Background
This 116-nucleotide RNA sequence from Candidatus Planktophila sulfonica belongs to the Rfam family "SAM (S-adenosyl methionine) riboswitch aptamer". The base pairs follow the family's consensus structure, which is taken from published work. The organism belongs to Candidatus Planktophila, within Bacteria. Rfam links the family to the GO terms S-adenosylmethionine metabolic process and regulation of gene expression.
RNA sequence: GGUCACGAGUUCUCAUCGAUAGCCCCGGCUGAUGAGACGGCAACCCUCCACCGCGGUGGGGUGCUCCGGGUGACGACCAGGCAGGUGCGUGUAAUGCGCAGUUGCAAGUGCGUGAA
Numbered sequence: 001g002g003u004c005a006c007g008a009g010u011u012c013u014c015a016u017c018g019a020u021a022g023c024c025c026c027g028g029c030u031g032a033u034g035a036g037a038c039g040g041c042a043a044c045c046c047u048c049c050a051c052c053g054c055g056g057u058g059g060g061g062u063g064c065u066c067c068g069g070g071u072g073a074c075g076a077c078c079a080g081g082c083a084g085g086u087g088c089g090u091g092u093a094a095u096g097c098g099c100a101g102u103u104g105c106a107a108g109u110g111c112g113u114g115a116a
Stems, first nucleotide, its partner, number of pairs: 001078004009038001011037006021030002039065003044061003048056002081105004086100005